RNA sequence: UGCAUUAAGGUGGGUGGGAUAUUAUAACAAUACUCCAUGUUGUUAUAGUAGUCCACCCUCCCUGAUGUC
Numbered sequence: 001u002g003c004a005u006u007a008a009g010g011u012g013g014g015u016g017g018g019a020u021a022u023u024a025u026a027a028c029a030a031u032a033c034u035c036c037a038u039g040u041u042g043u044u045a046u047a048g049u050a051g052u053c054c055a056c057c058c059u060c061c062c063u064g065a066u067g068u069c
Base pairs, nucleotide, nucleotide: 003067004066005065006064007063009061010060012058013057014056015055016054017053020050021049023047024046025045026044027043028042029041030040031039032038